[Rfam]
RNA sequence: CCUGGGGGCGCGCUUUGCUUACGUCGACACAAAGCGCGCUUACGAGGACGCGCUUUUCUGCCACGUAGGCAAAGCGCGCCCCUAGGG
Numbered sequence: 001c002c003u004g005g006g007g008g009c010g011c012g013c014u015u016u017g018c019u020u021a022c023g024u025c026g027a028c029a030c031a032a033a034g035c036g037c038g039c040u041u042a043c044g045a046g047g048a049c050g051c052g053c054u055u056u057u058c059u060g061c062c063a064c065g066u067a068g069g070c071a072a073a074g075c076g077c078g079c080c081c082c083u084a085g086g087g
Stems, first nucleotide, its partner, number of pairs: 001086021023064002026061001031056008040047002
The record is an 87-nucleotide RNA from Gossypium raimondii, which matches "MIR7486 microRNA precursor family" in Rfam. NCBI's taxonomy places the organism under Eukaryota, Streptophytina, Euphyllophyta, eudicotyledons, Gossypium. Rfam 15.1 lists 10,132 matches to the family in 36 species.